RNA sequence: UCUAUAUAAUGGCAAAGAUAUUGAAAGGUAAGGAAGUAAAGCUAAGGAUCUAAAGUACUUUUGCCCAGGUGGCCAAGUUACCAAG
Numbered sequence: 001u002c003u004a005u006a007u008a009a010u011g012g013c014a015a016a017g018a019u020a021u022u023g024a025a026a027g028g029u030a031a032g033g034a035a036g037u038a039a040a041g042c043u044a045a046g047g048a049u050c051u052a053a054a055g056u057a058c059u060u061u062u063g064c065c066c067a068g069g070u071g072g073c074c075a076a077g078u079u080a081c082c083a084a085g
Stems, first nucleotide, its partner, number of pairs: 012037002019030004040079004046074002048070003055064003
Dot-bracket structure: ...........((.....((((....)))).....))..((((..(((((....(((....)))...)))..)).))))......
c-di-GMP-I riboswitch aptamer: an 85-nucleotide RNA from Bacillus sp. FJAT-49711. Its family is annotated with cyclic-di-GMP binding in the Gene Ontology. The match comes from Rfam's covariance-model search (46 bits).